[Rfam]
RNA: Mammalian CPEB3 ribozyme
RNA sequence: AGAUUCAAAUAGGGGAUCAGGGUAGAAGUGUUCUCGUCGCUAUCCCUGUCAGGCUUUAAACAAAGCCUGCAAAUUCCACC
Numbered sequence: 001a002g003a004u005u006c007a008a009a010u011a012g013g014g015g016a017u018c019a020g021g022g023u024a025g026a027a028g029u030g031u032u033c034u035c036g037u038c039g040c041u042a043u044c045c046c047u048g049u050c051a052g053g054c055u056u057u058a059a060a061c062a063a064a065g066c067c068u069g070c071a072a073a074u075u076c077c078a079c080c
Stems, first nucleotide, its partner, number of pairs: 013046005021080003025076003028040003050069007